[Rfam]
RNA sequence: GGGUUGGCUGGCAGAGGCAGGGAACGGUCCAGCAUCGGCCGAGUGUGUGUUCAGGUUGUUCACUGCUUUUCCCUAGAAUGUCAGGUCAUGU
Numbered sequence: 001g002g003g004u005u006g007g008c009u010g011g012c013a014g015a016g017g018c019a020g021g022g023a024a025c026g027g028u029c030c031a032g033c034a035u036c037g038g039c040c041g042a043g044u045g046u047g048u049g050u051u052c053a054g055g056u057u058g059u060u061c062a063c064u065g066c067u068u069u070u071c072c073c074u075a076g077a078a079u080g081u082c083a084g085g086u087c088a089u090g091u
Stems, first nucleotide, its partner, number of pairs: 003089002006086001008084006019074006026067002032061001034059002037056001039054001041052003
This 91-nucleotide RNA from Tursiops truncatus belongs to the Rfam family "mir-1178 microRNA precursor family". The family's consensus secondary structure was predicted with RNAalifold. For this family Rfam cites "Computational identification of novel microRNA homologs in the chimpanzee genome" (Baev et al., Comput Biol Chem, 2009). Lineage of the source: Eukaryota > Laurasiatheria > Cetacea > Delphinidae > Tursiops.